ZMP/ZTP riboswitch aptamer (pfl RNA motif): an 81-nucleotide sequence from Caulobacter sp. A search with the family's covariance model found it, with a score of 54 bits.
RNA sequence: CGCCGUUCGCGUGACUGGCGCUAGUGAUGGGCAACCAUCGGGGAGCACGAACCUCAUCCGCCGCGCGCCUGGGCUCCCUUU
Dot-bracket structure: ....(((((.((..(([[[[[.....((((....))))..))..)).))))).......(((..]]]]]..))).......
Numbered sequence: 001c002g003c004c005g006u007u008c009g010c011g012u013g014a015c016u017g018g019c020g021c022u023a024g025u026g027a028u029g030g031g032c033a034a035c036c037a038u039c040g041g042g043g044a045g046c047a048c049g050a051a052c053c054u055c056a057u058c059c060g061c062c063g064c065g066c067g068c069c070u071g072g073g074c075u076c077c078c079u080u081u
Stems, first nucleotide, its partner, number of pairs: 005052005011046002015042002017069005027038004060074003